[Rfam]
RNA: Makes More Granules Regulator RNA (mmgR)
Organism: Parvularcula bermudensis
RNA sequence: GCCGCUUGCCCAAUUUUUUGGGCGUUUCCUCCCUACAACUGGCCGCGGCGCUGCCGCGGCCUUUUUUUUGUCCUUG
Numbered sequence: 001g002c003c004g005c006u007u008g009c010c011c012a013a014u015u016u017u018u019u020g021g022g023c024g025u026u027u028c029c030u031c032c033c034u035a036c037a038a039c040u041g042g043c044c045g046c047g048g049c050g051c052u053g054c055c056g057c058g059g060c061c062u063u064u065u066u067u068u069u070g071u072c073c074u075u076g
Base pairs, nucleotide, nucleotide: 008023009022010021011020012019013018041061042060043059044058045057046056047055048054049053